[Rfam]
RNA sequence: UCUGGUAAUGAUGAUAAACUUGCCCUCACUGAGUGCCAUUCUGUGAUGAGAACACCAAUGUACUCAACUAAUGUUAACCUGAACCAGG
Dot-bracket structure: ((((((............................................................................))))))
Numbered sequence: 001u002c003u004g005g006u007a008a009u010g011a012u013g014a015u016a017a018a019c020u021u022g023c024c025c026u027c028a029c030u031g032a033g034u035g036c037c038a039u040u041c042u043g044u045g046a047u048g049a050g051a052a053c054a055c056c057a058a059u060g061u062a063c064u065c066a067a068c069u070a071a072u073g074u075u076a077a078c079c080u081g082a083a084c085c086a087g088g
Stems, first nucleotide, its partner, number of pairs: 001088006

Overview
A member of the RNA family "Small nucleolar RNA SNORD103/SNORD85" from Xenopus laevis, 88 nucleotides long. A search with the family's covariance model found it, with a score of 54 bits. The organism belongs to Xenopus, within Eukaryota. The literature on the family includes a 2001 paper in EMBO J by Huttenhofer et al., "RNomics: an experimental approach that identifies 201 candidates for novel, small, non-messenger RNAs in mouse".